[Rfam]
RNA: Mammalian CPEB3 ribozyme
Organism: Crocodylus porosus
RNA sequence: AGAGGUCACAAAGUCAAAGCCACAGCAGAAUUGCUCACAGCAUGGCCCUGUUAGAUUCCAAUGAAUCUGUGAAUUCUACU
Number, nucleotide and partner (000 for none) at each position: 001a000002g000003a000004g000005g000006u000007c000008a000009c000010a000011a000012a000013g048014u000015c000016a000017a000018a000019g046020c045021c044022a000023c000024a080025g079026c000027a077028g076029a075030a074031u000032u042033g041034c000035u000036c000037a000038c000039a000040g000041c033042a032043u000044g021045g020046c019047c000048c013049u000050g000051u000052u069053a068054g067055a066056u065057u064058c063059c000060a000061a000062u000063g058064a057065a056066u055067c054068u053069g052070u000071g000072a000073a000074u030075u029076c028077u027078a000079c025080u024